[Rfam]
RNA sequence: GUUAAACGCCAAGUUUUGCUUGGUAAACUGAUUUGCAAAACUUGCAGUUUGUAUGCCGUUUCUCACUAUGUUGCGAAACGGCGGAAUUGAACAAUUUUCGAAAAUUGAUAUUUCCUCAAUUGUUCAAUUUUAA
Number, nucleotide and partner (000 for none) at each position: 001g000002u000003u000004a000005a000006a000007c000008g000009c000010c000011a043012a042013g041014u040015u039016u038017u037018g036019c035020u000021u000022g000023g000024u000025a000026a000027a000028c000029u000030g000031a000032u000033u000034u000035g019036c018037a017038a016039a015040a014041c013042u012043u011044g000045c000046a000047g000048u000049u000050u000051g000052u000053a000054u000055g082056c081057c080058g079059u078060u077061u076062c075063u000064c000065a000066c000067u000068a000069u000070g000071u000072u000073g000074c000075g062076a061077a060078a059079c058080g057081g056082c055083g000084g000085a000086a000087u127088u126089g125090a124091a123092c122093a121094a120095u119096u118097u000098u000099c000100g115101a000102a113103a112104a111105u110106u000107g000108a000109u000110a105111u104112u103113u102114c000115c100116u000117c000118a096119a095120u094121u093122g092123u091124u090125c089126a088127a087128u000129u000130u000131u000132a000133a000
The record is a 133-nucleotide RNA from Treponema phagedenis, which matches "TD-1 RNA" in Rfam. Rfam classes the family as a cis-regulatory element. The family is grouped with related families in Rfam's "TD (Treponema denticola) motifs". Lineage of the source: Bacteria > Pseudomonadati > Spirochaetia > Treponemataceae > Treponema. A reference for the family is Weinberg et al. (2007), "Identification of 22 candidate structured RNAs in bacteria using the CMfinder comparative genomics pipeline", Nucleic Acids Res. Pairs were carried over by alignment from the consensus structure, which is taken from published work.